[Rfam]
RNA sequence: AACCACACUAUCAAUGAAUAGACUCACCAGAUGACGUGGUUGUUCAACCUAGGAUAAGGACGUGGCAUCCUAUUAAUUUAGUGUUAUGGCUGGUAAUAGGAUGUCACGUCCUCAUCCUAAGUGGAACAGCCACGUCAUAUCAUGGGUGAAUCCAUUCAUUAAUAGUGUGGUU
Numbered sequence: 001a002a003c004c005a006c007a008c009u010a011u012c013a014a015u016g017a018a019u020a021g022a023c024u025c026a027c028c029a030g031a032u033g034a035c036g037u038g039g040u041u042g043u044u045c046a047a048c049c050u051a052g053g054a055u056a057a058g059g060a061c062g063u064g065g066c067a068u069c070c071u072a073u074u075a076a077u078u079u080a081g082u083g084u085u086a087u088g089g090c091u092g093g094u095a096a097u098a099g100g101a102u103g104u105c106a107c108g109u110c111c112u113c114a115u116c117c118u119a120a121g122u123g124g125a126a127c128a129g130c131c132a133c134g135u136c137a138u139a140u141c142a143u144g145g146g147u148g149a150a151u152c153c154a155u156u157c158a159u160u161a162a163u164a165g166u167g168u169g170g171u172u
Stems, first nucleotide, its partner, number of pairs: 001172007009164003013160003017156003021152002024149005031138005037132008047122002050119002053116002059110003065104011
Dot-bracket structure: (((((((.(((.(((.(((.((.(((((..(((((.((((((((..((.((.((....(((...(((((((((((..................)))))))))))...)))....)).)).))..)))))))).)))))......))))).)).))).))).))).)))))))